The record is a 171-nucleotide part of an RNA from Cordyceps sp. RAO-2017, which matches "Ascomycota telomerase RNA" in Rfam.
RNA sequence: CCCCCGUCAUGAUUCCCCCGGGAGAUUGACGGUCUCCUCGGCACACUACCGAAAGGAAGAAGUCGAGAUGAAAGCGCGGUUUUUGUGGACGUAUUUUGUGCGCGCGUACAAGCCCUCCUUGCCCGCUCUUUCGGGAGCACGAUGGAGAGGAAACAAAAACUAGUCCUCGUU
Numbered sequence: 001c002c003c004c005c006g007u008c009a010u011g012a013u014u015c016c017c018c019c020g021g022g023a024g025a026u027u028g029a030c031g032g033u034c035u036c037c038u039c040g041g042c043a044c045a046c047u048a049c050c051g052a053a054a055g056g057a058a059g060a061a062g063u064c065g066a067g068a069u070g071a072a073a074g075c076g077c078g079g080u081u082u083u084u085g086u087g088g089a090c091g092u093a094u095u096u097u098g099u100g101c102g103c104g105c106g107u108a109c110a111a112g113c114c115c116u117c118c119u120u121g122c123c124c125g126c127u128c129u130u131u132c133g134g135g136a137g138c139a140c141g142a143u144g145g146a147g148a149g150g151a152a153a154c155a156a157a158a159a160c161u162a163g164u165c166c167u168c169g170u171u
Base pairs, nucleotide, nucleotide: 005031006030007029011027012026014023015022016021035071036070037067038066039065040064041063046062047061049059050055088165089164090163091160092159094158095157096156097155098154099153113150114149115147116146117145118144125138126137127136128135130134
The organism belongs to Cordyceps, within Eukaryota. For this family Rfam cites "The common ancestral core of vertebrate and fungal telomerase RNAs" (Qi et al., Nucleic Acids Res, 2013).